About this RNA:
The family of this 54-nucleotide RNA from Salmo trutta is "UnaL2 LINE 3' element". From the family's description: The eel long interspersed element (LINE) UnaL2 and its partner short interspersed element (SINE) share a conserved 3' tail containing a stem-loop that is critical for their retrotransposition. The family's RNA type in Rfam is cis-regulatory element. The base pairs follow the family's consensus structure, which is taken from published work. Lineage of the source: Eukaryota > Metazoa > Eumetazoa > Craniata > Salmo.
RNA sequence: UGCAUUCACUACUGUAAUUCGCUCUGGAUAACAGCGUCUGCUAAAUGACUAAUA
Numbered sequence: 001u002g003c004a005u006u007c008a009c010u011a012c013u014g015u016a017a018u019u020c021g022c023u024c025u026g027g028a029u030a031a032c033a034g035c036g037u038c039u040g041c042u043a044a045a046u047g048a049c050u051a052a053u054a
Base pairs, nucleotide, nucleotide: 013043014041015040016039020036021035022034023033025031